[Rfam]
RNA sequence: UGCCAAUGAUGACAGAUUUAAGGCUUGUUUCUCAAAACAUUCGCAGUAGCCGCCUAAGAGCUUUCGCCUCGCCAGGCUUGAGAGUUAAUGCUGCUUGGUUCUUCCUUGGAUGUCUGAGGCC
Dot-bracket structure: .(((.......................................................((((((..............))))))................................))).

The family of this 121-nucleotide RNA from Ensete ventricosum is "Small nucleolar RNA SNORD14".
The family's consensus secondary structure was predicted with PFOLD.
On this family, see Samarsky et al., Nucleic Acids Res 1996: "An essential domain in Saccharomyces cerevisiae U14 snoRNA is absent in vertebrates, but conserved in other yeasts".
The family has 18 seed sequences and 4,559 matches in Rfam 15.1.
Its family is annotated with nucleolus and RNA processing in the Gene Ontology.
About the family: U14 small nucleolar RNA (U14 snoRNA) is required for early cleavages of eukaryotic precursor rRNAs. In yeasts, this molecule possess a stem-loop region (known as the Y-domain) which is essential for function. A similar structure, but with a different consensus sequence, is found in plants, but is absent in vertebrates.